[Rfam]
RNA sequence: ACCCUAAACCAAAUCUCUGUUUGGCAUGGUUUAUAAAUCCACAAAGAGAAACAGCUCGUCACGGGUACUUCUUUUUGUGUUCGCGUGGGGAAACCCGCGCGGGUGGUCGCAAGGCUGCC
Numbered sequence: 001a002c003c004c005u006a007a008a009c010c011a012a013a014u015c016u017c018u019g020u021u022u023g024g025c026a027u028g029g030u031u032u033a034u035a036a037a038u039c040c041a042c043a044a045a046g047a048g049a050a051a052c053a054g055c056u057c058g059u060c061a062c063g064g065g066u067a068c069u070u071c072u073u074u075u076u077g078u079g080u081u082c083g084c085g086u087g088g089g090g091a092a093a094c095c096c097g098c099g100c101g102g103g104u105g106g107u108c109g110c111a112a113g114g115c116u117g118c119c
Stems, first nucleotide, its partner, number of pairs: 001031001003029002009024006040079011054066005082101008102119006
Annotation:
This 119-nucleotide RNA belongs to the Rfam family "LOOT RNA". Rfam classes the family as a small RNA. Pairs were carried over by alignment from the consensus structure, which is taken from published work.